The family of this 297-nucleotide RNA sequence from Circinella minor is "Metazoan signal recognition particle RNA".
RNA sequence: CUGGGAAAUAGUAGCGUAUUUCUGUAAGCCAAGUAGUAGUCUAUAAAGAGCUGAAUCCAUUCGUUGGUGGAAAUCACGGUUGCUUGGUUGUCUCGUCGAAGACAAUGUCUUGCAGAGUUUGAUGUCAACAUUCGGAUCCGAGCGUAAGCUUGGAUUGGUAGGUUGUUCAAUACUGGGGAAACGCCCGAGGGUAGCAAUACAGCAGGGAAAACUCAGAGCACUAAUACGGCUGUCAAGAUAGCACUUUGGAAGGAAUUUAUCAAGUAGCUGCCAUUAACAGUGGGAACUACCUCUUUU
Numbered sequence: 001c002u003g004g005g006a007a008a009u010a011g012u013a014g015c016g017u018a019u020u021u022c023u024g025u026a027a028g029c030c031a032a033g034u035a036g037u038a039g040u041c042u043a044u045a046a047a048g049a050g051c052u053g054a055a056u057c058c059a060u061u062c063g064u065u066g067g068u069g070g071a072a073a074u075c076a077c078g079g080u081u082g083c084u085u086g087g088u089u090g091u092c093u094c095g096u097c098g099a100a101g102a103c104a105a106u107g108u109c110u111u112g113c114a115g116a117g118u119u120u121g122a123u124g125u126c127a128a129c130a131u132u133c134g135g136a137u138c139c140g141a142g143c144g145u146a147a148g149c150u151u152g153g154a155u156u157g158g159u160a161g162g163u164u165g166u167u168c169a170a171u172a173c174u175g176g177g178g179a180a181a182c183g184c185c186c187g188a189g190g191g192u193a194g195c196a197a198u199a200c201a202g203c204a205g206g207g208a209a210a211a212c213u214c215a216g217a218g219c220a221c222u223a224a225u226a227c228g229g230c231u232g233u234c235a236a237g238a239u240a241g242c243a244c245u246u247u248g249g250a251a252g253g254a255a256u257u258u259a260u261c262a263a264g265u266a267g268c269u270g271c272c273a274u275u276a277a278c279a280g281u282g283g284g285a286a287c288u289a290c291c292u293c294u295u296u297u
Stems, first nucleotide, its partner, number of pairs: 002043002004023007028041001030039001046295005052289002056284006063278008077270012091254003096249001102247001104245001106243003109237002112233004117227002119224003123220003126165004131160001133158001135156009166172001173216005184207003191200003

About the family: The signal recognition particle (SRP) is a universally conserved ribonucleoprotein. Its family is annotated with SRP-dependent cotranslational protein targeting to membrane, signal sequence recognition and signal recognition particle, endoplasmic reticulum targeting in the Gene Ontology.